[Rfam]
RNA sequence: CUCAACGCUCCAUACUUCUUUACAUUCCAUAUGUUUAAAAUACUAUGGGAUAGUAAGGAAGUACGGAACCCACAG
Numbered sequence: 001c002u003c004a005a006c007g008c009u010c011c012a013u014a015c016u017u018c019u020u021u022a023c024a025u026u027c028c029a030u031a032u033g034u035u036u037a038a039a040a041u042a043c044u045a046u047g048g049g050a051u052a053g054u055a056a057g058g059a060a061g062u063a064c065g066g067a068a069c070c071c072a073c074a075g
Stems, first nucleotide, its partner, number of pairs: 007069001009067003013063011024051002027048005
This 75-nucleotide RNA from Acanthoscelides obtectus belongs to the Rfam family "mir-1 microRNA precursor family". Rfam's curators write: This family represents the microRNA (miRNA) mir-1 family. miRNAs are transcribed as ~70nt precursors (modelled here) and subsequently processed by the Dicer enzyme to give a ~22nt product. In this case the mature sequence comes from the 3' arm of the precursor. The extents of the hairpin precursors are not generally known and are estimated based on hairpin prediction. The products are thought to have regulatory roles through complementarity to mRNA. The involvement of Dicer in miRNA processing suggests a relationship with the phenomenon of RNA interference. miRNAs are numbered based on the sequence of the mature RNA. This family also contains the mir-206 from human, which appears to be related to mir-1. For this family Rfam cites "An extensive class of small RNAs in Caenorhabditis elegans" (Lee and Ambros, Science, 2001). Its family is annotated with RISC complex and miRNA-mediated post-transcriptional gene silencing in the Gene Ontology. The family has 137 seed sequences and 4,474 matches in Rfam 15.1.